[Rfam]
RNA sequence: UACUAAUGACAGAAAGGAUGAUGGGUGGACGAUGAUUAACUAAUCUUAUUUUUAAAUGUUGAAAUUGGAUAUUUCAAAUUAUAAAAAAUAGGAUUAGUCUACCCAUUGUUCAUAAGGAAGUAAAGCUAUUUAAUAAAAUAGCUUAUUUGGGUAUAAAUAAUUUAAACGACUAAUCCUGCCAAAUUUAAUUGGGAGGAUUUUUUU
Number, nucleotide and partner (000 for none) at each position: 001u000002a000003c000004u000005a000006a000007u000008g000009a000010c000011a000012g000013a000014a000015a000016g111017g110018a109019u108020g000021a000022u105023g104024g103025g102026u000027g000028g099029a098030c097031g000032a000033u000034g000035a000036u000037u000038a000039a000040c000041u096042a095043a094044u093045c092046u091047u090048a089049u088050u087051u086052u085053u084054a000055a000056a000057u000058g000059u077060u076061g075062a074063a073064a072065u071066u000067g000068g000069a000070u000071a065072u064073u063074u062075c061076a060077a059078a000079u000080u000081a000082u000083a000084a053085a052086a051087a050088a049089u048090a047091g046092g045093a044094u043095u042096a041097g030098u029099c028100u000101a000102c025103c024104c023105a022106u000107u000108g019109u018110u017111c016112a000113u000114a000115a000116g000117g000118a000119a148120g147121u000122a000123a000124a000125g142126c141127u140128a139129u138130u137131u136132a000133a000134u000135a000136a131137a130138a129139u128140a127141g126142c125143u000144u000145a000146u000147u120148u119149g000150g000151g000152u000153a000154u000155a000156a000157a000158u000159a000160a000161u000162u000163u000164a000165a000166a000167c000168g000169a000170c000171u000172a199173a198174u197175c196176c195177u194178g000179c192180c191181a190182a189183a000184u000185u000186u000187a000188a000189u182190u181191g180192g179193g000194a177195g176196g175197a174198u173199u172200u000201u000202u000203u000204u000
This 204-nucleotide RNA belongs to the Rfam family "Bacillus sRNA ncr1575". It is annotated as a small RNA. It scores 163 bits against the family's covariance model. The literature on the family includes a 2010 paper in Nucleic Acids Res by Irnov et al., "Identification of regulatory RNAs in Bacillus subtilis". Pairs were carried over by alignment from the consensus structure, which is taken from published work.